[Rfam]
RNA sequence: AUGAGAUGAAAGAAAUCAUUCGGAUCCCCAUUGAUUUCCCUCCGGGAAAGAUGUGAUCAUUAACCAGCUACUUUUGACUCAU
Numbered sequence: 001a002u003g004a005g006a007u008g009a010a011a012g013a014a015a016u017c018a019u020u021c022g023g024a025u026c027c028c029c030a031u032u033g034a035u036u037u038c039c040c041u042c043c044g045g046g047a048a049a050g051a052u053g054u055g056a057u058c059a060u061u062a063a064c065c066a067g068c069u070a071c072u073u074u075u076g077a078c079u080c081a082u
Base pairs, nucleotide, nucleotide: 001082002081003080004079005078
RNA: Small nucleolar RNA R12